[Rfam]
Nucleotides: 194
Stems, first nucleotide, its partner, number of pairs: 005189005011183009021174002024171004032163005046149008056139003059130001061128003066122005
Number, partner (000 for none) and nucleotide at each position: 001000u002000a003000a004000g005189u006188u007187u008186g009185u010000c011183c012182u013181a014180a015179g016178u017177c018176a019175a020000a021174a022173c023000g024171u025170a026169u027168c028000c029000a030000a031000c032163u033162u034161u035160a036159a037000c038000c039000a040000a041000g042000u043000u044000u045000a046149u047148a048147g049146a050145a051144a052143a053142a054000u055000g056139u057138a058137g059130c060000a061128a062127c063126a064000u065000a066122c067121c068120a069119a070118a071000u072000a073000u074000a075000u076000g077000c078000a079000c080000u081000a082000u083000a084000c085000a086000a087000a088000c089000a090000u091000a092000u093000u094000u095000c096000a097000u098000a099000a100000u101000g102000g103000a104000u105000u106000c107000a108000a109000u110000g111000a112000a113000a114000c115000a116000a117000u118070u119069u120068u121067g122066g123000u124000a125000u126063u127062g128061u129000a130059g131000a132000u133000g134000u135000u136000g137058u138057u139056a140000u141000a142053u143052u144051u145050u146049u147048c148047u149046a150000u151000a152000a153000a154000c155000u156000u157000g158000g159036u160035u161034a162033a163032a164000g165000u166000u167000g168027g169026a170025u171024a172000a173022g174021u175019u176018u177017g178016a179015u180014u181013u182012a183011g184000g185009a186008c187007a188006a189005a190000g191000c192000u193000a194000a